This 431-nucleotide part of an RNA from Oreochromis niloticus belongs to the Rfam family "Eukaryotic large subunit ribosomal RNA". It scores 2912 bits against the family's covariance model. The base pairs follow the family's consensus structure, which is taken from published work. Lineage of the source: Eukaryota > Actinopterygii > Neopterygii > Euteleosteomorpha > Oreochromis.
RNA sequence: CGACCUCAGAUCAGACGAGACAACCCGCUGAAUUUAAGCAUAUUACUAAGCGGAGGAAAAGAAACUAACAAGGAUUCCCUUAGUAGCGGCGAGCGAAGAGGGAAGAGCCCAGCGCCGAAUCCCCGUCCGACAGGCGGGCGUGGGAAAUGUGGCGUACGGAAGACCGCUUUGCCCGGUGCCGAUCGGGGCCCAAGUCCUUCUGAUCGAGGCCCCAUCCCACGGACGGUGUGAGGCCGGUGGCGGCCCCUGUCGCGCCGGGGUUCGGUCUUCUCGGAGUCGGGUUGUUUGGGAAUGCAGCCCAAAGUGGGUGGUAAACUCCAUCUAAGGCUAAAUACCGGCACGAGACCGAUAGACGACAAGUACCGUAAGGGAAAGUUGAAAAGAACUUUGAAGAGAGAGUUCAACAGGGCGUGAAACCGUUAAGAGGUAAA
Numbered sequence: 001c002g003a004c005c006u007c008a009g010a011u012c013a014g015a016c017g018a019g020a021c022a023a024c025c026c027g028c029u030g031a032a033u034u035u036a037a038g039c040a041u042a043u044u045a046c047u048a049a050g051c052g053g054a055g056g057a058a059a060a061g062a063a064a065c066u067a068a069c070a071a072g073g074a075u076u077c078c079c080u081u082a083g084u085a086g087c088g089g090c091g092a093g094c095g096a097a098g099a100g101g102g103a104a105g106a107g108c109c110c111a112g113c114g115c116c117g118a119a120u121c122c123c124c125g126u127c128c129g130a131c132a133g134g135c136g137g138g139c140g141u142g143g144g145a146a147a148u149g150u151g152g153c154g155u156a157c158g159g160a161a162g163a164c165c166g167c168u169u170u171g172c173c174c175g176g177u178g179c180c181g182a183u184c185g186g187g188g189c190c191c192a193a194g195u196c197c198u199u200c201u202g203a204u205c206g207a208g209g210c211c212c213c214a215u216c217c218c219a220c221g222g223a224c225g226g227u228g229u230g231a232g233g234c235c236g237g238u239g240g241c242g243g244c245c246c247c248u249g250u251c252g253c254g255c256c257g258g259g260g261u262u263c264g265g266u267c268u269u270c271u272c273g274g275a276g277u278c279g280g281g282u283u284g285u286u287u288g289g290g291a292a293u294g295c296a297g298c299c300c301a302a303a304g305u306g307g308g309u310g311g312u313a314a315a316c317u318c319c320a321u322c323u324a325a326g327g328c329u330a331a332a333u334a335c336c337g338g339c340a341c342g343a344g345a346c347c348g349a350u351a352g353a354c355g356a357c358a359a360g361u362a363c364c365g366u367a368a369g370g371g372a373a374a375g376u377u378g379a380a381a382a383g384a385a386c387u388u389u390g391a392a393g394a395g396a397g398a399g400u401u402c403a404a405c406a407g408g409g410c411g412u413g414a415a416a417c418c419g420u421u422a423a424g425a426g427g428u429a430a431a
Stems, first nucleotide, its partner, number of pairs: 024055001025053005035042002065072002076103005086094002106329004113154005119148001120145004124140005159270002162267004173258007185247006194210001196209004218222001225235002279300007306323005363370002386397004